The family of this 491-nucleotide RNA sequence from Aulographum hederae is "RNase MRP". It is annotated as a ribozyme. Taxonomically the source falls in Aulographum hederae (Eukaryota, Dikarya, Ascomycota, saccharomyceta).
RNA sequence: UCCUCGCUCAAAGAAUCGCAAUCAAAGCUUACAACAGAAGAACAUCUUCUUCAUCCACACACAGCUUUGGGAGAAAGUCCCCGGACGCCCUUCGCCCGUCAAACGGCAAGGCAAGCGGAAACGCGCCGCCAUAGAAGCAGUUCCACCGCGGCUUACCCAUCGCCAAUCCCUCCGCAUCCUGUUUCUCUACCUCCCUUACCGUCUGUACUCUUCCUUCAUCCCGUAUCCUGGAGAUCCUGCGAAGUGAGAAAGACGCUUUGGAUGAAGAUAUGAGUCCGAGCUUUCUCACCGAGUGGAUUUUCUGGCUGCGUUGGCUUGGGAAAGAGGAGGUGGGGAGUUUUCCACUGGGACUUGGGACUGCGGAUCAAGGGUGGAGGUGGAUCCUUUUCGUCACAGUUGACAGAUAUGCGAUUGCCUUUUCUUCUUUCUUCGUCUCUCGGGAUGAGGAGGGCCAGAGAGGUAACUCGAUGGGGCUUAUUCUUGAUGCGAGG
Numbered sequence: 001u002c003c004u005c006g007c008u009c010a011a012a013g014a015a016u017c018g019c020a021a022u023c024a025a026a027g028c029u030u031a032c033a034a035c036a037g038a039a040g041a042a043c044a045u046c047u048u049c050u051u052c053a054u055c056c057a058c059a060c061a062c063a064g065c066u067u068u069g070g071g072a073g074a075a076a077g078u079c080c081c082c083g084g085a086c087g088c089c090c091u092u093c094g095c096c097c098g099u100c101a102a103a104c105g106g107c108a109a110g111g112c113a114a115g116c117g118g119a120a121a122c123g124c125g126c127c128g129c130c131a132u133a134g135a136a137g138c139a140g141u142u143c144c145a146c147c148g149c150g151g152c153u154u155a156c157c158c159a160u161c162g163c164c165a166a167u168c169c170c171u172c173c174g175c176a177u178c179c180u181g182u183u184u185c186u187c188u189a190c191c192u193c194c195c196u197u198a199c200c201g202u203c204u205g206u207a208c209u210c211u212u213c214c215u216u217c218a219u220c221c222c223g224u225a226u227c228c229u230g231g232a233g234a235u236c237c238u239g240c241g242a243a244g245u246g247a248g249a250a251a252g253a254c255g256c257u258u259u260g261g262a263u264g265a266a267g268a269u270a271u272g273a274g275u276c277c278g279a280g281c282u283u284u285c286u287c288a289c290c291g292a293g294u295g296g297a298u299u300u301u302c303u304g305g306c307u308g309c310g311u312u313g314g315c316u317u318g319g320g321a322a323a324g325a326g327g328a329g330g331u332g333g334g335g336a337g338u339u340u341u342c343c344a345c346u347g348g349g350a351c352u353u354g355g356g357a358c359u360g361c362g363g364a365u366c367a368a369g370g371g372u373g374g375a376g377g378u379g380g381a382u383c384c385u386u387u388u389c390g391u392c393a394c395a396g397u398u399g400a401c402a403g404a405u406a407u408g409c410g411a412u413u414g415c416c417u418u419u420u421c422u423u424c425u426u427u428c429u430u431c432g433u434c435u436c437u438c439g440g441g442a443u444g445a446g447g448a449g450g451g452c453c454a455g456a457g458a459g460g461u462a463a464c465u466c467g468a469u470g471g472g473g474c475u476u477a478u479u480c481u482u483g484a485u486g487c488g489a490g491g
Stems, first nucleotide, its partner, number of pairs: 002491006008484004014413006022071001023069006037052006075476003079473004335385001341381006351370003415460006